Background:
The family of this 61-nucleotide RNA from Castanea mollissima is "Plastid-psbN 5UTR RNA". The base pairs follow the family's consensus structure, which was predicted with LocARNA. From the family's description: Plastid psbN is a non-coding RNA (ncRNA) recognised in plastids. It was reported as a conserved 11 stem-loop in the prime untranslated region (5UTR) of psbN genes. It has been reported that the motif is retained in a subset of mature transcripts in barley, which can suggests a possible role in transcript alternative 5 prime processing. The family's RNA type in Rfam is cis-regulatory element. On this family, see Richter et al., Plant Commun 2023: "Retrograde signaling in plants: A critical review focusing on the GUN pathway and beyond". Taxonomically the source falls in Castanea (Eukaryota, Tracheophyta, Gunneridae, fabids).

[Rfam]
RNA sequence: AAAAACACCCAUAAGAACAGUUGUUCCCCAACCAGGUGCUACUUUUCCAUACUCUGAAUUU
Number, nucleotide and partner (000 for none) at each position: 001a000002a000003a000004a000005a000006c000007a000008c000009c000010c000011a000012u000013a000014a000015g000016a000017a045018c000019a043020g042021u041022u000023g039024u038025u000026c036027c035028c000029c000030a000031a000032c000033c000034a000035g027036g026037u000038g024039c023040u000041a021042c020043u019044u000045u017046u000047c000048c000049a000050u000051a000052c000053u000054c000055u000056g000057a000058a000059u000060u000061u000